[Rfam]
RNA sequence: CACAGCCCUGCCUCCCAUCACUCAAACACCCCUUCAUGUGCUGUAUUAAUCCAUAUACGAAAAUCUCUUUUAAUGAGGAGUGAUAUAGUUAUGAACUCUCUAGAGCCAUAAUUAGAGCAAACUAAUUGAAGUUGUGUUUUGACACACUUUCCAAAUUCACGGGUACUGCAUGACAUAUUCACAACACUGCUGCUGCACACCGUGGUGACAGCAAAAUCAUUAGGCUAAUAACACUUAUUUGCAUUCCCAUCAUGCCGGCGGCGGCCGUUAAACGCUGCCUCAACCAGUGCUCGCUUAUCGGAAAGUUUCUACUGGAAGAUAUUAACAGUAAUUAUUAGUACUUUAGUGAAUCUCUGAUGUUAAGAA
Numbered sequence: 001c002a003c004a005g006c007c008c009u010g011c012c013u014c015c016c017a018u019c020a021c022u023c024a025a026a027c028a029c030c031c032c033u034u035c036a037u038g039u040g041c042u043g044u045a046u047u048a049a050u051c052c053a054u055a056u057a058c059g060a061a062a063a064u065c066u067c068u069u070u071u072a073a074u075g076a077g078g079a080g081u082g083a084u085a086u087a088g089u090u091a092u093g094a095a096c097u098c099u100c101u102a103g104a105g106c107c108a109u110a111a112u113u114a115g116a117g118c119a120a121a122c123u124a125a126u127u128g129a130a131g132u133u134g135u136g137u138u139u140u141g142a143c144a145c146a147c148u149u150u151c152c153a154a155a156u157u158c159a160c161g162g163g164u165a166c167u168g169c170a171u172g173a174c175a176u177a178u179u180c181a182c183a184a185c186a187c188u189g190c191u192g193c194u195g196c197a198c199a200c201c202g203u204g205g206u207g208a209c210a211g212c213a214a215a216a217u218c219a220u221u222a223g224g225c226u227a228a229u230a231a232c233a234c235u236u237a238u239u240u241g242c243a244u245u246c247c248c249a250u251c252a253u254g255c256c257g258g259c260g261g262c263g264g265c266c267g268u269u270a271a272a273c274g275c276u277g278c279c280u281c282a283a284c285c286a287g288u289g290c291u292c293g294c295u296u297a298u299c300g301g302a303a304a305g306u307u308u309c310u311a312c313u314g315g316a317a318g319a320u321a322u323u324a325a326c327a328g329u330a331a332u333u334a335u336u337a338g339u340a341c342u343u344u345a346g347u348g349a350a351u352c353u354c355u356g357a358u359g360u361u362a363a364g365a366a
Base pairs, nucleotide, nucleotide: 044359045358046357047356048355050350052348053347054346057343059341065080066079067078068077069076070075085335086334087333088332089331090330091329092328096105097104098103115292116291117290118289119288128150129149130148131147133146134145135144136143137142162266163265166261191207192206193205194204195203211255212254213253224242225241227239228238229237230236

The record is a 366-nucleotide RNA sequence from Calyptomena viridis, which matches "ncRNA Repressor of NFAT (nuclear factor of activated T cells)" in Rfam. It is annotated as a non-coding RNA gene. A search with the family's covariance model found it, with a score of 326 bits. NCBI's taxonomy places the organism under Eukaryota, Eumetazoa, Deuterostomia, Sauropsida, Calyptomena.